[Rfam]
RNA sequence: GGCUCACACCAAGAACUUGUCAUCGAAGCUAUCGAAGUUACACAAUGCUUUGGGGAAAGUCUCCUGCCAUCGAUGCGGAAACGCGGCGAGUCAACAUCUCGUGGACCACUAUCAUUCCUGUGUGUUUGUUUCAAUGGGUUUCGUAAGGGGCUCUAGCAAUCUGCUCGUCUGUUUUGACUUUAUACCUUCGGGUAGGGUUAGAUAUGCUAUUGCUGACGACGGCUCCCUUAAGUUGGAGUGAGGACUCUGGAAUGGUUGAGGUACAAGGCCUGGGUUCGUCUCAGUGUAGGCUUCGGCCAAGUCGGCGAUGGGAACGUGGUUCCUAAACCAUAGUCAUGACAAGUGUGGUGCUUUCGCCAUAACCCAAUGGAGCUUAUUUUGGUGUGGGU
Dot-bracket structure: .((((((((((...((((((..(((((((.................)))))))...[[[.[[[[.........((((....))))(((((.......)))))..................................................................................................(.(...((((((....((((.....................................................................((....))...)))).)))))).).).......................)))))).(((((....))))).........]]]]]]]....))))))))))